The record is a 97-nucleotide sequence from a BD1-7 clade bacterium, which matches "Bacterial small signal recognition particle RNA" in Rfam.
Its family is annotated with SRP-dependent cotranslational protein targeting to membrane, signal sequence recognition and signal recognition particle, plasma membrane targeting in the Gene Ontology.
The signal recognition particle (SRP) is a universally conserved ribonucleoprotein involved in the co-translational targeting of proteins to membranes.
The organism belongs to Spongiibacteraceae, within Bacteria.
The base pairs follow the family's consensus structure, which is taken from published work.

RNA sequence: GUCUGGUCCUCUCGCAACGAUACGUAGUUAAUCCCGCCAGGCCCGGAAGGGAGCAACGGUAGCUACGGACUCGUGUGCCGGGAUGUGGCUGGGCAGA
Numbered sequence: 001g002u003c004u005g006g007u008c009c010u011c012u013c014g015c016a017a018c019g020a021u022a023c024g025u026a027g028u029u030a031a032u033c034c035c036g037c038c039a040g041g042c043c044c045g046g047a048a049g050g051g052a053g054c055a056a057c058g059g060u061a062g063c064u065a066c067g068g069a070c071u072c073g074u075g076u077g078c079c080g081g082g083a084u085g086u087g088g089c090u091g092g093g094c095a096g097a
Base pairs, nucleotide, nucleotide: 004091005090006089007088008087010083011082012081013080014079015075017074018073019072020071023067024066025065026064027063028062029061034059035058036057042051043050044049